[Rfam]
Shown here is a 74-nucleotide RNA from Terrapene triunguis, a member of the family "Mammalian CPEB3 ribozyme". A search with the family's covariance model found it, with a score of 47 bits.
RNA sequence: CUAGAUAAACCAGAGUCAUAGCAGGAGCGUUUGUUGCAGCCCCUGCCAGAUUCUCUGAAUCUGCGAAUCCUGCU
Numbered sequence: 001c002u003a004g005a006u007a008a009a010c011c012a013g014a015g016u017c018a019u020a021g022c023a024g025g026a027g028c029g030u031u032u033g034u035u036g037c038a039g040c041c042c043c044u045g046c047c048a049g050a051u052u053c054u055c056u057g058a059a060u061c062u063g064c065g066a067a068u069c070c071u072g073c074u
Stems, first nucleotide, its partner, number of pairs: 013042001015040002020074007027037003047063007
Overview:
Rfam's curators write: The mammalian CPEB3 ribozyme is a self cleaving RNA located in the second intron of the CPEB3 gene which belongs to a family of genes regulating messenger RNA polyadenylation. The base pairs follow the family's consensus structure, which is taken from published work.